FMN riboswitch aptamer (RFN element): a 116-nucleotide RNA from Caproicibacterium amylolyticum.
RNA sequence: AAAUAUCUUCGGGGCAGGGUGAAAAUCCCUAUCGGUGGUAAAGCCCACGAGCCGCAAGGCAUGACUCGGUGUGAUUCCGGGGCCGGCAGUUAAAGUCUGAAUAAAAGAAGAUUUGC
Dot-bracket structure: ..(.((((((......(((.......))).[[((((((....[[))))....(.....).....(((((.......)))))]])).(((.....]]))).......)))))).)..
Rfam links the family to the GO term FMN binding.
A search with the family's covariance model found it, with a score of 100 bits.